[Rfam]
A member of the RNA family "Tryptophan operon leader" from Vibrio genomosp. F6, 102 nucleotides long.
RNA sequence: CUUAGUUGGUGGCGCACUUGGACAAGUUCUUGGUGGGCUAACGUAUACUUUUAAUUAAUAAAAUCUAUACAUUUAGCCCGCUCAAUGAGCGGGCUUUUUAUU
Numbered sequence: 001c002u003u004a005g006u007u008g009g010u011g012g013c014g015c016a017c018u019u020g021g022a023c024a025a026g027u028u029c030u031u032g033g034u035g036g037g038c039u040a041a042c043g044u045a046u047a048c049u050u051u052u053a054a055u056u057a058a059u060a061a062a063a064u065c066u067a068u069a070c071a072u073u074u075a076g077c078c079c080g081c082u083c084a085a086u087g088a089g090c091g092g093g094c095u096u097u098u099u100a101u102u
Stems, first nucleotide, its partner, number of pairs: 009042002012039001015035004020030003075095007082087001
At least 6 amino acid operons are known to be regulated by attenuation. In each a leader sequence of 150-200 bp is found upstream of the first gene in the operon. Taxonomically the source falls in Vibrio genomosp. F6 (Bacteria, Vibrionales, Vibrionaceae, Vibrio). Gene Ontology terms of the family: tryptophan biosynthetic process and transcriptional attenuation by ribosome. The match comes from Rfam's covariance-model search (80 bits).